[Rfam]
RNA sequence: UGAUACCAGGGCCCCAAGGUCAUGUGCUUCAUGCCUGCAUGAAAACACAUGACUUUAGGACCCGCAAAACAUUCGAAAGCAGCCCGAACAUGGUUGCUUUCGAAUGUUUUUAGGAUUGUGGGAGCACAAAGUGCGGAACAAUCCGUAGGUAUCA
Numbered sequence: 001u002g003a004u005a006c007c008a009g010g011g012c013c014c015c016a017a018g019g020u021c022a023u024g025u026g027c028u029u030c031a032u033g034c035c036u037g038c039a040u041g042a043a044a045a046c047a048c049a050u051g052a053c054u055u056u057a058g059g060a061c062c063c064g065c066a067a068a069a070c071a072u073u074c075g076a077a078a079g080c081a082g083c084c085c086g087a088a089c090a091u092g093g094u095u096g097c098u099u100u101c102g103a104a105u106g107u108u109u110u111u112a113g114g115a116u117u118g119u120g121g122g123a124g125c126a127c128a129a130a131g132u133g134c135g136g137a138a139c140a141a142u143c144c145g146u147a148g149g150u151a152u153c154a
Stems, first nucleotide, its partner, number of pairs: 001154007010062002013059001016056011028044001029042005066110007075101004082094003113144007124134004
The record is a 154-nucleotide RNA sequence from Anaerobium acetethylicum, which matches "Clostridiales-1 RNA" in Rfam. The family has 194 seed sequences and 1,172 matches in Rfam 15.1. The family's consensus secondary structure is taken from published work. The family's RNA type in Rfam is small RNA. The organism belongs to Anaerobium, within Bacteria.